[Rfam]
RNA sequence: GAGACACCUUCAUGAGGCAAGACUUGCUUCAGUGGGGCUUUGGUGCUUACUGAAUUUUCCCCCUGAGUGUGUUCCU
Numbered sequence: 001g002a003g004a005c006a007c008c009u010u011c012a013u014g015a016g017g018c019a020a021g022a023c024u025u026g027c028u029u030c031a032g033u034g035g036g037g038c039u040u041u042g043g044u045g046c047u048u049a050c051u052g053a054a055u056u057u058u059c060c061c062c063c064u065g066a067g068u069g070u071g072u073u074c075c076u
Stems, first nucleotide, its partner, number of pairs: 001075001003073005009067004014062001016060002019057001021056002029053008037044002

This 76-nucleotide RNA sequence from Pipistrellus kuhlii belongs to the Rfam family "mir-9229 microRNA precursor family".
The organism belongs to Pipistrellus, within Eukaryota.
Its family is annotated with miRNA-mediated post-transcriptional gene silencing and RISC complex in the Gene Ontology.
The match comes from Rfam's covariance-model search (74 bits).
Rfam 15.1 lists 27,225 matches to the family in 9 species.